RNA: Small nucleolar RNA snoR8a
Organism: Theobroma cacao
RNA sequence: AUCGAUGAUUAUAAAAUUAAAAUUAAUUCCUCAUUCUAACUUACUUAAUUUUGACAUGACAAACCUCUUAUUACAACCAUAGAAUCUGAGUUCCACG
Numbered sequence: 001a002u003c004g005a006u007g008a009u010u011a012u013a014a015a016a017u018u019a020a021a022a023u024u025a026a027u028u029c030c031u032c033a034u035u036c037u038a039a040c041u042u043a044c045u046u047a048a049u050u051u052u053g054a055c056a057u058g059a060c061a062a063a064c065c066u067c068u069u070a071u072u073a074c075a076a077c078c079a080u081a082g083a084a085u086c087u088g089a090g091u092u093c094c095a096c097g
Base pairs, nucleotide, nucleotide: 003097004096006095007094